[Rfam]
RNA sequence: GGAAAGCACUUGGAAUUUCCGGCAGUCUGGCAGUGUUAAUAGCCUUUUCUUUGGCCGGAUAAGGCGGUUAGUGAAUC
Numbered sequence: 001g002g003a004a005a006g007c008a009c010u011u012g013g014a015a016u017u018u019c020c021g022g023c024a025g026u027c028u029g030g031c032a033g034u035g036u037u038a039a040u041a042g043c044c045u046u047u048u049c050u051u052u053g054g055c056c057g058g059a060u061a062a063g064g065c066g067g068u069u070a071g072u073g074a075a076u077c
Stems, first nucleotide, its partner, number of pairs: 001020005036071005042065005048059003
RNA: L13-Bacteroidia ribosomal protein leader